RNA sequence: AUGAGGAGGAACCGAUAUGAACGAAGUUCAUAUUUAGGAUCGGUUCCGACGACCAGCCGCCGAACGGAUGUGAGGGGGCAUUACAUAUU
Numbered sequence: 001a002u003g004a005g006g007a008g009g010a011a012c013c014g015a016u017a018u019g020a021a022c023g024a025a026g027u028u029c030a031u032a033u034u035u036a037g038g039a040u041c042g043g044u045u046c047c048g049a050c051g052a053c054c055a056g057c058c059g060c061c062g063a064a065c066g067g068a069u070g071u072g073a074g075g076g077g078g079c080a081u082u083a084c085a086u087a088u089u
Stems, first nucleotide, its partner, number of pairs: 008047006016032006056079003060075002064071002
GA-cis RNA: an 89-nucleotide sequence. Rfam classes the family as a small RNA. Pairs were carried over by alignment from the consensus structure, which is taken from published work. The sequence is in the family's curated seed alignment.